[Rfam]
RNA sequence: AUUGAUACACCCCUUUUAGUCAGUAAAUAUCAUUUUACCAUAUAAGUUUGAUAGUUUUCCAAUGGAGAUAUAAAAUAUUUGUCAGGAAUUGUAUUGAUAUGGGACCUGGGAUUUAAAGUGGUGAUCACGAUUGGACUUGAACCAACGACCACUACCA
Numbered sequence: 001a002u003u004g005a006u007a008c009a010c011c012c013c014u015u016u017u018a019g020u021c022a023g024u025a026a027a028u029a030u031c032a033u034u035u036u037a038c039c040a041u042a043u044a045a046g047u048u049u050g051a052u053a054g055u056u057u058u059c060c061a062a063u064g065g066a067g068a069u070a071u072a073a074a075a076u077a078u079u080u081g082u083c084a085g086g087a088a089u090u091g092u093a094u095u096g097a098u099a100u101g102g103g104a105c106c107u108g109g110g111a112u113u114u115a116a117a118g119u120g121g122u123g124a125u126c127a128c129g130a131u132u133g134g135a136c137u138u139g140a141a142c143c144a145a146c147g148a149c150c151a152c153u154a155c156c157a
Stems, first nucleotide, its partner, number of pairs: 024050003030044001067079003119154005128147002131145004
A member of the RNA family "Bacterial antisense RNA HPnc0260" from Sulfurovum lithotrophicum, 157 nucleotides long.
The family's consensus secondary structure was predicted with CMfinder.
It scores 63 bits against the family's covariance model.
On this family, see Sharma et al., Nature 2010: "The primary transcriptome of the major human pathogen Helicobacter pylori".
Lineage of the source: Bacteria > Epsilonproteobacteria > Campylobacterales > Sulfurovaceae > Sulfurovum.